[Rfam]
RNA sequence: GCCGGGCGCGAUGGCGUGUGCCUGUAAUCCCAGCUACUCAGGAGGCUGAGCCCGAACGGAUCGCUUGAGCCCAGGAGUUCUGGGCUGCACUGUGCUAUGCCGAGCGGGCGUCCGCGCUAAGGUCGUCAUCAAUAUGGUGAGCUGCGGGGAGCUGCGGCACACCAGGUUAAUUAAGGAGGGGUGAACCAGCCCAGGUCGGAGACUGAGCAGGUCAAAGCUCCCGUGACAGUCAGUAGCGGGAUUGCACCUGUGAAUAGCCAUUGCAGCGUAGCCUGGGCAACACAGAGAGACGCGGGCUCUU
Dot-bracket structure: ((((((((((......)))))))....(((..........)))))).(((((((......((.((...(((((((....(((.((((((.((.(((((.(...(((((.((((.(((((.(((.(((((.(((.(((((.(((((((....))))))).))))).)))..(...)..(((((......(((....(.(....).)....)))....))))).))))).)))..)))))))...)).)))))).))))))).)))))).)))))))))).....)).))....)))))))..